Record summary: Rfam assigns this 98-nucleotide sequence from Ureibacillus massiliensis to the family "SAM riboswitch aptamer (S box leader)". Gene Ontology term of the family: regulation of gene expression. The family's consensus secondary structure is taken from published work. NCBI's taxonomy places the organism under Bacteria, Bacillota, Bacilli, Caryophanaceae, Ureibacillus massiliensis. Its Rfam clan is "SAM clan".
RNA sequence: UUCUUAUCAAGAGAAGCAGAGGGAACUGGCCCGAUGACGCUUCAGCAACCAACAGUUAUGUAUGGUGCUAAAUCCAGCGGUUAUCCGGAAGAUAAGAA
Numbered sequence: 001u002u003c004u005u006a007u008c009a010a011g012a013g014a015a016g017c018a019g020a021g022g023g024a025a026c027u028g029g030c031c032c033g034a035u036g037a038c039g040c041u042u043c044a045g046c047a048a049c050c051a052a053c054a055g056u057u058a059u060g061u062a063u064g065g066u067g068c069u070a071a072a073u074c075c076a077g078c079g080g081u082u083a084u085c086c087g088g089a090a091g092a093u094a095a096g097a098a
Stems, first nucleotide, its partner, number of pairs: 001098008013043005021032003026077004044069004049065002052061003073090001078087003